[Rfam]
Nucleotides: 075
Stems, first nucleotide, its partner, number of pairs: 014026004033069001038065002043060002047056003
Number, partner (000 for none) and nucleotide at each position: 001000c002000u003000u004000c005000a006000a007000c008000g009000a010000c011000c012000c013000c014026a015025g016024c017023c018000a019000c020000a021000a022000a023017g024016g025015c026014u027000g028000u029000u030000c031000a032000u033069c034000u035000g036000a037000g038065c039064g040000g041000u042000c043060c044059u045000g046000u047056c048055c049054g050000u051000a052000c053000g054049u055048g056047g057000c058000g059044a060043g061000c062000a063000g064039u065038g066000c067000c068000u069033g070000c071000g072000c073000c074000u075000c